[Rfam]
RNA sequence: GGGUCGGUGUCCGAGCGGUUAAUGGAGGCGGACUGUAAAUCCGCUGGCUUGCGCCUACGCUAGUUCGAAUCUAGCCCGGCCCA
Numbered sequence: 001g002g003g004u005c006g007g008u009g010u011c012c013g014a015g016c017g018g019u020u021a022a023u024g025g026a027g028g029c030g031g032a033c034u035g036u037a038a039a040u041c042c043g044c045u046g047g048c049u050u051g052c053g054c055c056u057a058c059g060c061u062a063g064u065u066c067g068a069a070u071c072u073a074g075c076c077c078g079g080c081c082c083a
Base pairs, nucleotide, nucleotide: 001082002081003080004079005078006077007076010026011025012024013023028044029043030042031041032040059075060074061073062072063071
Description:
The family of this 83-nucleotide RNA from Cylindrospermopsis raciborskii is "tRNA". Pairs were carried over by alignment from the consensus structure, which is taken from published work. NCBI's taxonomy places the organism under Bacteria, Bacillati, Cyanophyceae, Nostocales, Cylindrospermopsis raciborskii.